[Rfam]
RNA sequence: GUGGGCUGUGGGAACAUGAUACCCAUCACAGUGGGGGGCAAGAUCGUGGGGUCCCUGUGUGCCGCUGAGGGUGUCUUAACCAUUGCUUUGCCAGUGCCAGUGACUGUCUCUAAC
Numbered sequence: 001g002u003g004g005g006c007u008g009u010g011g012g013a014a015c016a017u018g019a020u021a022c023c024c025a026u027c028a029c030a031g032u033g034g035g036g037g038g039c040a041a042g043a044u045c046g047u048g049g050g051g052u053c054c055c056u057g058u059g060u061g062c063c064g065c066u067g068a069g070g071g072u073g074u075c076u077u078a079a080c081c082a083u084u085g086c087u088u089u090g091c092c093a094g095u096g097c098c099a100g101u102g103a104c105u106g107u108c109u110c111u112a113a114c
Base pairs, nucleotide, nucleotide: 001114002113004111005110008107009106010105011104014101015100018097021095022094037077038076040074049063050062
Shown here is a 114-nucleotide RNA sequence from Hipposideros armiger, a member of the family "Potassium channel RNA editing signal". By type it is a cis-regulatory element. The organism belongs to Hipposideros, within Eukaryota.